Plastid-psbA-1 3UTR RNA: a 118-nucleotide sequence from Adenia mannii. The literature on the family includes a 2023 paper in Plant Commun by Richter et al., "Retrograde signaling in plants: A critical review focusing on the GUN pathway and beyond".
RNA sequence: GUUGAAGCUCCAUCUACAAAUGGAUAAGACUUUGGUCUUAGUGUGUACGAAACCUUGAAAUAAAGGAGCAAUAGCAAAUUUCUUGUUAUAUCAAGAGGAUUUUUAUUGCUCCUUUAUU
Numbered sequence: 001g002u003u004g005a006a007g008c009u010c011c012a013u014c015u016a017c018a019a020a021u022g023g024a025u026a027a028g029a030c031u032u033u034g035g036u037c038u039u040a041g042u043g044u045g046u047a048c049g050a051a052a053c054c055u056u057g058a059a060a061u062a063a064a065g066g067a068g069c070a071a072u073a074g075c076a077a078a079u080u081u082c083u084u085g086u087u088a089u090a091u092c093a094a095g096a097g098g099a100u101u102u103u104u105a106u107u108g109c110u111c112c113u114u115u116a117u118u
Stems, first nucleotide, its partner, number of pairs: 009024005062115013076101002080097005